[Rfam]
RNA sequence: CUGUGGCCGGCGGGGAAACCGUUACCAUUACUGAGUUUAGUAAUGGUAACGGUUCUGCUGACGGCCAGGCA
Numbered sequence: 001c002u003g004u005g006g007c008c009g010g011c012g013g014g015g016a017a018a019c020c021g022u023u024a025c026c027a028u029u030a031c032u033g034a035g036u037u038u039a040g041u042a043a044u045g046g047u048a049a050c051g052g053u054u055c056u057g058c059u060g061a062c063g064g065c066c067a068g069g070c071a
Stems, first nucleotide, its partner, number of pairs: 007064003011060003017054004022049012
A member of the RNA family "mir-451 microRNA precursor family" from Amazona aestiva, 71 nucleotides long.
Gene Ontology terms of the family: RISC complex and miRNA-mediated post-transcriptional gene silencing.
On this family, see Zhu et al., Biochem Pharmacol 2008: "Role of MicroRNA miR-27a and miR-451 in the regulation of MDR1/P-glycoprotein expression in human cancer cells".
It scores 80 bits against the family's covariance model.
The organism belongs to Amazona, within Eukaryota.